[Rfam]
RNA sequence: UCAGGGCCGGUGCUCUAUCCACUGUGCCACCUAACUGCCCCUCUAAUAUGGUUUUUGAAAGAGACUAGUUGUGGGGCAGCUAGAUGGUGCAGUGGAUAGAGCACCGGCCCUGGA
Numbered sequence: 001u002c003a004g005g006g007c008c009g010g011u012g013c014u015c016u017a018u019c020c021a022c023u024g025u026g027c028c029a030c031c032u033a034a035c036u037g038c039c040c041c042u043c044u045a046a047u048a049u050g051g052u053u054u055u056u057g058a059a060a061g062a063g064a065c066u067a068g069u070u071g072u073g074g075g076g077c078a079g080c081u082a083g084a085u086g087g088u089g090c091a092g093u094g095g096a097u098a099g100a101g102c103a104c105c106g107g108c109c110c111u112g113g114a
Stems, first nucleotide, its partner, number of pairs: 001114002005109006012102017

The record is a 114-nucleotide RNA from Phascolarctos cinereus, which matches "mir-130 microRNA precursor family" in Rfam.
Lineage of the source: Eukaryota > Vertebrata > Sarcopterygii > Phascolarctidae > Phascolarctos.
For this family Rfam cites "Identification of tissue-specific microRNAs from mouse" (Lagos-Quintana et al., Curr Biol, 2002).
It scores 43 bits against the family's covariance model.